[Rfam]
RNA sequence: CUCUUAUCAAGAGCGGUGGAGGGAAUAGGCCCUAUGAAGCCCGGCAACCUGAGGUGAAAGUGAUACUUUCCUUAAAAGGUGCUAAAUCCUACAGGUCAUAUGAUCUGGAAGAUAAGAG
Number, nucleotide and partner (000 for none) at each position: 001c118002u117003c116004u115005u114006a113007u112008c111009a000010a000011g000012a000013g042014c000015g041016g040017u039018g000019g000020a000021g032022g031023g030024a000025a000026u091027a090028g089029g088030c023031c022032c021033u000034a000035u000036g000037a000038a000039g017040c016041c015042c013043g083044g082045c081046a080047a000048c079049c078050u075051g000052a073053g072054g000055u000056g000057a000058a000059a000060g000061u000062g000063a000064u000065a000066c000067u000068u000069u000070c000071c000072u053073u052074a000075a050076a000077a000078g049079g048080u046081g045082c044083u043084a000085a000086a000087u110088c029089c028090u027091a026092c107093a106094g105095g104096u103097c102098a000099u000100a000101u000102g097103a096104u095105c094106u093107g092108g000109a000110a087111g008112a007113u006114a005115a004116g003117a002118g001